RNA sequence: GGCCAAUGAUUUGAAUUAAUUGUCCGUACCAUCUGAAGGCUAGCAGUUGCUGGUCUAUUGCUGCACUCUAUCUCUGAGGCCU
Numbered sequence: 001g002g003c004c005a006a007u008g009a010u011u012u013g014a015a016u017u018a019a020u021u022g023u024c025c026g027u028a029c030c031a032u033c034u035g036a037a038g039g040c041u042a043g044c045a046g047u048u049g050c051u052g053g054u055c056u057a058u059u060g061c062u063g064c065a066c067u068c069u070a071u072c073u074c075u076g077a078g079g080c081c082u
Stems, first nucleotide, its partner, number of pairs: 001081004
A member of the RNA family "small nucleolar RNA snoR117" from Miscanthus lutarioriparius, 82 nucleotides long. The base pairs follow the family's consensus structure, which was predicted with RNAalifold. The source organism's lineage runs through Eukaryota, Streptophytina, Mesangiospermae, Andropogoneae and Miscanthus. Rfam classes the family as a C/D-box small nucleolar RNA. Rfam links the family to the GO terms nucleolus and RNA processing. The family has 6 seed sequences and 419 matches in Rfam 15.1.